This 104-nucleotide RNA from Crypthecodinium cohnii belongs to the Rfam family "U5 spliceosomal RNA". Rfam classes the family as a spliceosomal small nuclear RNA. Pairs were carried over by alignment from the consensus structure, which is taken from published work. Rfam 15.1 lists 28,527 matches to the family in 2,489 species.

RNA sequence: AUCACAGUGUUCACUUCAACCGAAUCAAUCUUUCGCCUUUUACUAAAGGUUGCCGUGAAUGGGACACAUCAAUGUGAAUCUCUCAAUUUUUGAGGGCUCUGCCC
Numbered sequence: 001a002u003c004a005c006a007g008u009g010u011u012c013a014c015u016u017c018a019a020c021c022g023a024a025u026c027a028a029u030c031u032u033u034c035g036c037c038u039u040u041u042a043c044u045a046a047a048g049g050u051u052g053c054c055g056u057g058a059a060u061g062g063g064a065c066a067c068a069u070c071a072a073u074g075u076g077a078a079u080c081u082c083u084c085a086a087u088u089u090u091u092g093a094g095g096g097c098u099c100u101g102c103c104c
Base pairs, nucleotide, nucleotide: 003076004075005074006073008066009065010064011063012062015059016058017057018056026052027051028050029049030048031047032046033045094104095103096102097101
Annotation
The sequence is in the family's curated seed alignment.